[Rfam]
RNA sequence: AUUUUUCACUAGGGGAGCCAACUGUAGGCUGAGAAAAGCAAAGCUUUGACCCUUAGAACCUGAUCUGGUUGAUCCCAGCGUAGGGAAGUGAGUCGUUUUUACA
Dot-bracket structure: .....(((((((((.((((.(...).)))......((((...)))))..)))).....((((..((((......))))..))))..)))))............
This 103-nucleotide RNA from Geomicrobium sp. JCM 19038 belongs to the Rfam family "TPP riboswitch aptamer (THI element)". NCBI's taxonomy places the organism under Bacteria, Bacillati, Bacilli, Caryophanales, Geomicrobium. It scores 86 bits against the family's covariance model. Pairs were carried over by alignment from the consensus structure, which is taken from published work.